Shown here is a 140-nucleotide RNA sequence from Geodermatophilus sp. DF01-2, a member of the family "c-di-AMP riboswitch aptamer (ydaO/yuaA leader)". A search with the family's covariance model found it, with a score of 55 bits. About the family: This family represents a conserved RNA structure found upstream of the ydaO and yuaA genes in Bacillus subtilis and related genes in other bacteria. Lineage of the source: Bacteria > Actinomycetota > Actinomycetes > Geodermatophilaceae > Geodermatophilus. Gene Ontology terms of the family: cyclic-di-AMP binding and regulation of gene expression.

RNA sequence: UCCCACCCGGGGCCGAGGCGGACCGGGGACCCACCGAACCAUUGGGGUGAGUCCUGCCUGCGUUGGGGAAGCGCAGGCGGGUAGGGCGCCGUCCGGCCCGAACCCGUCAGCUAACUCGGUAGGCGGUCGCGAGGAUGGGA
Numbered sequence: 001u002c003c004c005a006c007c008c009g010g011g012g013c014c015g016a017g018g019c020g021g022a023c024c025g026g027g028g029a030c031c032c033a034c035c036g037a038a039c040c041a042u043u044g045g046g047g048u049g050a051g052u053c054c055u056g057c058c059u060g061c062g063u064u065g066g067g068g069a070a071g072c073g074c075a076g077g078c079g080g081g082u083a084g085g086g087c088g089c090c091g092u093c094c095g096g097c098c099c100g101a102a103c104c105c106g107u108c109a110g111c112u113a114a115c116u117c118g119g120u121a122g123g124c125g126g127u128c129g130c131g132a133g134g135a136u137g138g139g140a
Stems, first nucleotide, its partner, number of pairs: 002123002007021003022120006032044002045105003053081012084099004
Dot-bracket structure: .((...(((.........)))((((((....((.........))(((.....((((((((((((.....))))))))))))..((((........))))...))).........)))))).)).................